Notes
This 65-nucleotide RNA belongs to the Rfam family "DUF3800-IX RNA". Rfam's curators write: Actinobacteria, Firmicutes (1 example), Nitrospirae, Proteobacteria, Verrucomicrobia (1 example).

RNA sequence: AGCCUGAAUCCGAAUUGUCACCGUAUGGUGCGCGUGCCCCUUGAGGGCUAGGAUUUGGGCUUUUU
Numbered sequence: 001a002g003c004c005u006g007a008a009u010c011c012g013a014a015u016u017g018u019c020a021c022c023g024u025a026u027g028g029u030g031c032g033c034g035u036g037c038c039c040c041u042u043g044a045g046g047g048c049u050a051g052g053a054u055u056u057g058g059g060c061u062u063u064u065u
Stems, first nucleotide, its partner, number of pairs: 001061011016034003019030004036048004
It is annotated as a small RNA.